[Rfam]
RNA sequence: UUCAAUGUUGUCAAUGAUGCAUUCUUUUGGAAUUGAAUUUAAGUGAUCUAACUCAAAUUCGUCGCUACCACUGAGACAACAUUGAG
Numbered sequence: 001u002u003c004a005a006u007g008u009u010g011u012c013a014a015u016g017a018u019g020c021a022u023u024c025u026u027u028u029g030g031a032a033u034u035g036a037a038u039u040u041a042a043g044u045g046a047u048c049u050a051a052c053u054c055a056a057a058u059u060c061g062u063c064g065c066u067a068c069c070a071c072u073g074a075g076a077c078a079a080c081a082u083u084g085a086g
Stems, first nucleotide, its partner, number of pairs: 001086012

Small nucleolar RNA SNORD70: an 86-nucleotide sequence from Canis lupus. The base pairs follow the family's consensus structure. About the family: snoRNA HBII-234 belongs to the C/D family of snoRNAs. It is the human orthologue of the mouse MBII-234 and is predicted to guide 2'O-ribose methylation of the small 18S rRNA on position A512. It is hosted, together with HBII-95, by the core C/D box snoRNA protein encoding gene NOP5/NOP58. A reference for the family is Huttenhofer et al. (2001), "RNomics: an experimental approach that identifies 201 candidates for novel, small, non-messenger RNAs in mouse", EMBO J.